RNA sequence: AUGGGCUAGAAAAUGGCUGCUGUGUGGCUGGGUCUCCUUGGGGGUCCUGUUUUAUACCAGUGAGCCUGACUUUGCCCAAGAUUAAGAAAAGGCAACCUUUUAGGGGUCCGCCUUAUGCAGUAACAGGUGUGAGCAUCCUUACAGGAACCUGAUGGUCAUGUAUGAUACUGCAUACAGAU
Numbered sequence: 001a002u003g004g005g006c007u008a009g010a011a012a013a014u015g016g017c018u019g020c021u022g023u024g025u026g027g028c029u030g031g032g033u034c035u036c037c038u039u040g041g042g043g044g045u046c047c048u049g050u051u052u053u054a055u056a057c058c059a060g061u062g063a064g065c066c067u068g069a070c071u072u073u074g075c076c077c078a079a080g081a082u083u084a085a086g087a088a089a090a091g092g093c094a095a096c097c098u099u100u101u102a103g104g105g106g107u108c109c110g111c112c113u114u115a116u117g118c119a120g121u122a123a124c125a126g127g128u129g130u131g132a133g134c135a136u137c138c139u140u141a142c143a144g145g146a147a148c149c150u151g152a153u154g155g156u157c158a159u160g161u162a163u164g165a166u167a168c169u170g171c172a173u174a175c176a177g178a179u
Stems, first nucleotide, its partner, number of pairs: 003077004008072002015066004019061004024057002026051003030047001032045003091112003095107004114174009124164002130158003134154004

Shown here is a 179-nucleotide sequence from Notechis scutatus, a member of the family "Small Cajal body specific RNA 16". By type it is a small Cajal body RNA. Rfam's curators write: scaRNAs are a specific class of small nuclear RNAs which localise to the Cajal bodies and guide the modification of RNA polymerase II transcribed spliceosomal RNAs U1, U2, U4, U5 and U12. ACA47 belongs to the H/ACA box class of guide RNAs as it has the predicted hairpin-hinge-hairpin-tail structure, the conserved H/ACA-box motifs and is found associated with GAR1. ACA47 is predicted to guide the pseudouridylation of residue U5 of the U1 spliceosomal snRNA. The base pairs follow the family's consensus structure, which was predicted with RNAfold. On this family, see Darzacq et al., EMBO J 2002: "Cajal body-specific small nuclear RNAs: a novel class of 2'-O-methylation and pseudouridylation guide RNAs". Rfam links the family to the GO terms nucleolus and RNA processing.